This 76-nucleotide RNA from Alligator mississippiensis belongs to the Rfam family "Mammalian CPEB3 ribozyme".
RNA sequence: GCUGUGUGACAUGAAGCCAUAGCAGAAGUGCUUCUGACACAGCCUGUCAAAUUCCAGUGAAUCUAUGAAUUCUGCU
Numbered sequence: 001g002c003u004g005u006g007u008g009a010c011a012u013g014a015a016g017c018c019a020u021a022g023c024a025g026a027a028g029u030g031c032u033u034c035u036g037a038c039a040c041a042g043c044c045u046g047u048c049a050a051a052u053u054c055c056a057g058u059g060a061a062u063c064u065a066u067g068a069a070u071u072c073u074g075c076u
Stems, first nucleotide, its partner, number of pairs: 013044001016043002021076007028040003049064001051062004

The source organism's lineage runs through Eukaryota, Chordata, Dipnotetrapodomorpha, Sauropsida and Alligator. The base pairs follow the family's consensus structure, which is taken from published work. It scores 42 bits against the family's covariance model.